[Rfam]
Nucleotides: 184
Base pairs, nucleotide, nucleotide: 010175016169017168018167019166020165021164022163023162024161026159027158028157029156030155031154032153033152034151035150036149037148038147
Number, partner (000 for none) and nucleotide at each position: 001000a002000a003000g004000g005000a006000g007000g008000a009000u010175c011000u012000g013000u014000a015000a016169a017168g018167c019166u020165c021164a022163g023162g024161a025000g026159g027158g028157a029156u030155a031154g032153c033152g034151c035150c036149a037148u038147g039000a040000a041000u042000u043000u044000a045000u046000a047000u048000a049000u050000c051000u052000u053000a054000c055000u056000g057000g058000u059000g060000g061000u062000g063000g064000g065000c066000c067000g068000g069000u070000g071000g072000c073000u074000a075000c076000a077000a078000c079000a080000u081000g082000u083000g084000g085000u086000u087000g088000u089000a090000g091000c092000c093000g094000c095000c096000a097000g098000g099000c100000c101000c102000g103000c104000c105000a106000c107000c108000g109000g110000u111000g112000g113000u114000g115000g116000u117000u118000g119000u120000c121000a122000g123000g124000g125000g126000g127000g128000c129000u130000g131000g132000u133000g134000a135000c136000g137000g138000u139000g140000a141000c142000u143000u144000u145000u146000g147038u148037g149036u150035g151034g152033c153032g154031c155030u156029a157028u158027c159026u160000a161024u162023c163022c164021u165020g166019a167018g168017u169016u170000u171000c172000a173000u174000g175010g176000g177000u178000u179000c180000u181000u182000u183000c184000u
A member of the RNA family "MIR390 microRNA precursor family" from Rhododendron williamsianum, 184 nucleotides long. On this family, see Adai et al., Genome Res 2005: "Computational prediction of miRNAs in Arabidopsis thaliana". NCBI's taxonomy places the organism under Eukaryota, Gunneridae, Pentapetalae, Rhodoreae, Rhododendron. Rfam 15.1 lists 649 matches to the family in 206 species. Gene Ontology terms of the family: miRNA-mediated post-transcriptional gene silencing and RISC complex.